[Rfam]
RNA sequence: CUGUAAGAGGAAUGAUGUACUAUUAUAGAGCUCUGAAGAUGCUGGCUUUCCUUGAUUCUGCAUCAGAGAUGGAUAUUAGAG
Numbered sequence: 001c002u003g004u005a006a007g008a009g010g011a012a013u014g015a016u017g018u019a020c021u022a023u024u025a026u027a028g029a030g031c032u033c034u035g036a037a038g039a040u041g042c043u044g045g046c047u048u049u050c051c052u053u054g055a056u057u058c059u060g061c062a063u064c065a066g067a068g069a070u071g072g073a074u075a076u077u078a079g080a081g
Stems, first nucleotide, its partner, number of pairs: 001081002004078003